This 77-nucleotide RNA from Alligator sinensis belongs to the Rfam family "Mammalian CPEB3 ribozyme". The base pairs follow the family's consensus structure, which is taken from published work. Lineage of the source: Eukaryota > Metazoa > Dipnotetrapodomorpha > Archelosauria > Alligator. A search with the family's covariance model found it, with a score of 50 bits.

RNA sequence: GGUCACAAGUUUGAGGCCACAGUAGAAGCACUCAUGGCACAGCCCUGUCAGAUUCCAAUGAAUCUGUGAAUUCUGCA
Numbered sequence: 001g002g003u004c005a006c007a008a009g010u011u012u013g014a015g016g017c018c019a020c021a022g023u024a025g026a027a028g029c030a031c032u033c034a035u036g037g038c039a040c041a042g043c044c045c046u047g048u049c050a051g052a053u054u055c056c057a058a059u060g061a062a063u064c065u066g067u068g069a070a071u072u073c074u075g076c077a
Base pairs, nucleotide, nucleotide: 013045015044016043017042022076023075024074025073026072027071028040049066050065051064052063053062054061055060
Dot-bracket structure: ............[.[[[....(((((((...........).]]]]...(((((((....)))))))....)))))).